[Rfam]
RNA sequence: GAUAGUGAUAAGAAAGAUGAGCUCAUUGUAAUAUGAGCUUCAUUUAUGCAUUUCAUAUUACAAUUAGCUCAUCUUUUUUAUGACUACC
Numbered sequence: 001g002a003u004a005g006u007g008a009u010a011a012g013a014a015a016g017a018u019g020a021g022c023u024c025a026u027u028g029u030a031a032u033a034u035g036a037g038c039u040u041c042a043u044u045u046a047u048g049c050a051u052u053u054c055a056u057a058u059u060a061c062a063a064u065u066a067g068c069u070c071a072u073c074u075u076u077u078u079u080a081u082g083a084c085u086a087c088c
Stems, first nucleotide, its partner, number of pairs: 003086004008081016025064002028061010

mir-556 microRNA precursor family: an 88-nucleotide sequence from Pongo pygmaeus. Pairs were carried over by alignment from the consensus structure, which was predicted with RNAalifold. Rfam links the family to the GO terms RISC complex and miRNA-mediated post-transcriptional gene silencing. Rfam's curators put it in the seed alignment.